[Rfam]
RNA sequence: CAAAUGGCCCUUUUCAGGGCCACAAAUUUUUUUUUAAACAAGGAC
Numbered sequence: 001c002a003a004a005u006g007g008c009c010c011u012u013u014u015c016a017g018g019g020c021c022a023c024a025a026a027u028u029u030u031u032u033u034u035u036a037a038a039c040a041a042g043g044a045c
Stems, first nucleotide, its partner, number of pairs: 006021006
RNA: Histone 3' UTR stem-loop
Organism: Vespula pensylvanica